Rfam assigns this 139-nucleotide RNA from Gammaproteobacteria bacterium ESL0073 to the family "FMN riboswitch aptamer (RFN element)". It scores 122 bits against the family's covariance model. Rfam links the family to the GO term FMN binding. The family's consensus secondary structure is taken from published work. Lineage of the source: Bacteria > Pseudomonadati > Pseudomonadota > Gammaproteobacteria. The literature on the family includes a 1999 paper in Trends Genet by Gelfand et al., "A conserved RNA structure element involved in the regulation of bacterial riboflavin synthesis genes". The RFN element is a highly conserved domain that is found frequently in the 5'-untranslated regions of prokaryotic mRNAs that encode for flavin mononucleotide (FMN) biosynthesis and transport proteins.

[Rfam]
RNA sequence: AAAAGUCUUCAGGGCGGGGCGUAAUUCCCCACCGGCGGUGAGUCAAUCAAGACAAGCCCGCGAGCUUUUGUGGUUUAAAAUAGCAGAUUUGGUGAGAUUCCAAAGCCGACGGUUAAAGUCCGGAUGAAAGAAGAUGCAC
Numbered sequence: 001a002a003a004a005g006u007c008u009u010c011a012g013g014g015c016g017g018g019g020c021g022u023a024a025u026u027c028c029c030c031a032c033c034g035g036c037g038g039u040g041a042g043u044c045a046a047u048c049a050a051g052a053c054a055a056g057c058c059c060g061c062g063a064g065c066u067u068u069u070g071u072g073g074u075u076u077a078a079a080a081u082a083g084c085a086g087a088u089u090u091g092g093u094g095a096g097a098u099u100c101c102a103a104a105g106c107c108g109a110c111g112g113u114u115a116a117a118g119u120c121c122g123g124a125u126g127a128a129a130g131a132a133g134a135u136g137c138a139c
Stems, first nucleotide, its partner, number of pairs: 005135006017029003031119002033108002035061004056106002064084003088104005110122003